Shown here is a 685-nucleotide sequence from Dentipellis sp. KUC8613, a member of the family "Nuclear RNase P".
RNA sequence: GCCAGUCCCAAGGCCGCGAGGCUCACCACAACCGGACGUCGCUGCUGCGUGCGUCUUCUUCGUGAGCGGGCCAAGGUCUGAGUAUUUCGUCCUCAUCAUCGGCUCUAGCAGAGCCCAGCUCUGACGGGCUGCGCAGCGUACCAGAAAUAUGCACCGCCGUACCAUCUACUCCCUGAGAUUGACCUACUGUCUGAGCCAUCGGCCACGUAGACAUGAGGGAGGGCGUAUCACGGAUGCUUGGGACACGCUGCGAGGACUGGGUGUACUGUCGUUCAAACGGUGCUCUUCGUCUUCCCGAUCCGCUAUCGCGCCGCAAUGGAUAGAGGCGUGGUAUCGCUGCAAAAUGGACGAGUCGAGGCGAAGCGACGCUGUUUCUCCUCCCUCUGCUCCCCCUCGGCCAUGUUUGCCAUGCGUCUGGAGGAAUCCAGUCUCUCGUGGCUGAUGCAGUCGAUGACGGAGCAUAAGGCGGAAGUCGUUCGUCCAGCCCGCUUCGAUUUGUUCAUUUAGAAUUAAGGAUACGCAUAUACUAUCCUAGUCUCCCGCUUCGUGCGAGAGAAUGGCGUACGAGGCAGGUGUUACAGGUUGAUGGAGUCCUUCGUUCAUGGACUAGCGCUCUUGAGUGCACUUCGCGGCUCAUGCGCCCUUUGGUCGUAUGAAACUCGAUUCAGACUACUCUUAGACUGGC
Numbered sequence: 001g002c003c004a005g006u007c008c009c010a011a012g013g014c015c016g017c018g019a020g021g022c023u024c025a026c027c028a029c030a031a032c033c034g035g036a037c038g039u040c041g042c043u044g045c046u047g048c049g050u051g052c053g054u055c056u057u058c059u060u061c062g063u064g065a066g067c068g069g070g071c072c073a074a075g076g077u078c079u080g081a082g083u084a085u086u087u088c089g090u091c092c093u094c095a096u097c098a099u100c101g102g103c104u105c106u107a108g109c110a111g112a113g114c115c116c117a118g119c120u121c122u123g124a125c126g127g128g129c130u131g132c133g134c135a136g137c138g139u140a141c142c143a144g145a146a147a148u149a150u151g152c153a154c155c156g157c158c159g160u161a162c163c164a165u166c167u168a169c170u171c172c173c174u175g176a177g178a179u180u181g182a183c184c185u186a187c188u189g190u191c192u193g194a195g196c197c198a199u200c201g202g203c204c205a206c207g208u209a210g211a212c213a214u215g216a217g218g219g220a221g222g223g224c225g226u227a228u229c230a231c232g233g234a235u236g237c238u239u240g241g242g243a244c245a246c247g248c249u250g251c252g253a254g255g256a257c258u259g260g261g262u263g264u265a266c267u268g269u270c271g272u273u274c275a276a277a278c279g280g281u282g283c284u285c286u287u288c289g290u291c292u293u294c295c296c297g298a299u300c301c302g303c304u305a306u307c308g309c310g311c312c313g314c315a316a317u318g319g320a321u322a323g324a325g326g327c328g329u330g331g332u333a334u335c336g337c338u339g340c341a342a343a344a345u346g347g348a349c350g351a352g353u354c355g356a357g358g359c360g361a362a363g364c365g366a367c368g369c370u371g372u373u374u375c376u377c378c379u380c381c382c383u384c385u386g387c388u389c390c391c392c393c394u395c396g397g398c399c400a401u402g403u404u405u406g407c408c409a410u411g412c413g414u415c416u417g418g419a420g421g422a423a424u425c426c427a428g429u430c431u432c433u434c435g436u437g438g439c440u441g442a443u444g445c446a447g448u449c450g451a452u453g454a455c456g457g458a459g460c461a462u463a464a465g466g467c468g469g470a471a472g473u474c475g476u477u478c479g480u481c482c483a484g485c486c487c488g489c490u491u492c493g494a495u496u497u498g499u500u501c502a503u504u505u506a507g508a509a510u511u512a513a514g515g516a517u518a519c520g521c522a523u524a525u526a527c528u529a530u531c532c533u534a535g536u537c538u539c540c541c542g543c544u545u546c547g548u549g550c551g552a553g554a555g556a557a558u559g560g561c562g563u564a565c566g567a568g569g570c571a572g573g574u575g576u577u578a579c580a581g582g583u584u585g586a587u588g589g590a591g592u593c594c595u596u597c598g599u600u601c602a603u604g605g606a607c608u609a610g611c612g613c614u615c616u617u618g619a620g621u622g623c624a625c626u627u628c629g630c631g632g633c634u635c636a637u638g639c640g641c642c643c644u645u646u647g648g649u650c651g652u653a654u655g656a657a658a659c660u661c662g663a664u665u666c667a668g669a670c671u672a673c674u675c676u677u678a679g680a681c682u683g684g685c
Stems, first nucleotide, its partner, number of pairs: 001685004010676001013633007021067005035055005040049001078668005089257004101115005116131006132252007151237003634656007
About this RNA: Pairs were carried over by alignment from the consensus structure, which is taken from published work. Ribonuclease P (RNase P) is a ubiquitous endoribonuclease, found in archaea, bacteria and eukarya as well as chloroplasts and mitochondria. Its best characterised activity is the generation of mature 5'-ends of tRNAs by cleaving the 5'-leader elements of precursor-tRNAs. The literature on the family includes a 1998 paper in Annu Rev Biochem by Frank and Pace, "Ribonuclease P: unity and diversity in a tRNA processing ribozyme". By type it is a ribozyme.